Background:
A. fumigatus sRNA Afu_309: a 292-nucleotide RNA from Aspergillus avenaceus. The base pairs follow the family's consensus structure, which was predicted with WAR. The organism belongs to Aspergillus subgen. Circumdati, within Eukaryota. On this family, see Jochl et al., Nucleic Acids Res 2008: "Small ncRNA transcriptome analysis from Aspergillus fumigatus suggests a novel mechanism for regulation of protein synthesis". Rfam classes the family as a small RNA.

RNA sequence: CUUUUUUUUCUUUCAACGGAUCUGUGUUCAGCGAUCCUGGUCGUUACUGCGUAUCGGUUGAUUGCUGGACAGUUCGACGAUGAAGGGAGCCAUCGCAAUCGUGGAUGGUUUACAGCGUUCCGGUCGACAGAUUCAAGAUUAAAGUCUGAACAUCUUGCAUCACUCUGGUCUUGAGCUCCCUUUGGUGAGCUCGGCUGGAUGGCUUGGUGUUUGGCGGCGUCAUAUUCCUAAUCCCUGCCGAUUAGGCCGUCGGCCCAUGAGGUUUGGGAAAAACCAUGACUAGCCAACAUCC
Numbered sequence: 001c002u003u004u005u006u007u008u009u010c011u012u013u014c015a016a017c018g019g020a021u022c023u024g025u026g027u028u029c030a031g032c033g034a035u036c037c038u039g040g041u042c043g044u045u046a047c048u049g050c051g052u053a054u055c056g057g058u059u060g061a062u063u064g065c066u067g068g069a070c071a072g073u074u075c076g077a078c079g080a081u082g083a084a085g086g087g088a089g090c091c092a093u094c095g096c097a098a099u100c101g102u103g104g105a106u107g108g109u110u111u112a113c114a115g116c117g118u119u120c121c122g123g124u125c126g127a128c129a130g131a132u133u134c135a136a137g138a139u140u141a142a143a144g145u146c147u148g149a150a151c152a153u154c155u156u157g158c159a160u161c162a163c164u165c166u167g168g169u170c171u172u173g174a175g176c177u178c179c180c181u182u183u184g185g186u187g188a189g190c191u192c193g194g195c196u197g198g199a200u201g202g203c204u205u206g207g208u209g210u211u212u213g214g215c216g217g218c219g220u221c222a223u224a225u226u227c228c229u230a231a232u233c234c235c236u237g238c239c240g241a242u243u244a245g246g247c248c249g250u251c252g253g254c255c256c257a258u259g260a261g262g263u264u265u266g267g268g269a270a271a272a273a274c275c276a277u278g279a280c281u282a283g284c285c286a287a288c289a290u291c292c
Stems, first nucleotide, its partner, number of pairs: 018134008026070006033063004037057005042051002078126004085113001087111001089109003152208003157203001167196004173192006179185002216285003219280005232269004237263003245255004